Overview
The family of this 90-nucleotide RNA sequence is "GA-cis RNA". It is annotated as a small RNA. The sequence is in the family's curated seed alignment.

RNA sequence: UAGAGGAGGAACCAAUAUGACGGAGUCAUAUUAUCGGAAUGGUUCCGACGACGUGCCCCGCUCGCAUGAGCGAGAGGGGCGAUACAUUAU
Numbered sequence: 001u002a003g004a005g006g007a008g009g010a011a012c013c014a015a016u017a018u019g020a021c022g023g024a025g026u027c028a029u030a031u032u033a034u035c036g037g038a039a040u041g042g043u044u045c046c047g048a049c050g051a052c053g054u055g056c057c058c059c060g061c062u063c064g065c066a067u068g069a070g071c072g073a074g075a076g077g078g079g080c081g082a083u084a085c086a087u088u089a090u
Stems, first nucleotide, its partner, number of pairs: 008046006015031006055080005062073004